[Rfam]
RNA sequence: AAAAAGGGCAUCUGCCGUGAGUGGCACGGGGAGGGCGGGUCACCGUCCGCGCUGCGGAAUCGCGAUCAAGAGAUUUCGGAUGCACAAUUUUUGUUGCACGGGGCUGCUGAUGACCGCGAGUCUUGGCGCCCCA
Numbered sequence: 001a002a003a004a005a006g007g008g009c010a011u012c013u014g015c016c017g018u019g020a021g022u023g024g025c026a027c028g029g030g031g032a033g034g035g036c037g038g039g040u041c042a043c044c045g046u047c048c049g050c051g052c053u054g055c056g057g058a059a060u061c062g063c064g065a066u067c068a069a070g071a072g073a074u075u076u077c078g079g080a081u082g083c084a085c086a087a088u089u090u091u092u093g094u095u096g097c098a099c100g101g102g103g104c105u106g107c108u109g110a111u112g113a114c115c116g117c118g119a120g121u122c123u124u125g126g127c128g129c130c131c132c133a
Stems, first nucleotide, its partner, number of pairs: 008083005013026005027054003031050001033048006055078007101131004106127005112122003
Shown here is a 133-nucleotide RNA from Denticeps clupeoides, a member of the family "U11 spliceosomal RNA". Its Rfam clan is "U1 clan". It scores 108 bits against the family's covariance model. The family's consensus secondary structure is taken from published work. NCBI's taxonomy places the organism under Eukaryota, Eumetazoa, Euteleostomi, Denticipitidae, Denticeps. Rfam classes the family as a spliceosomal small nuclear RNA.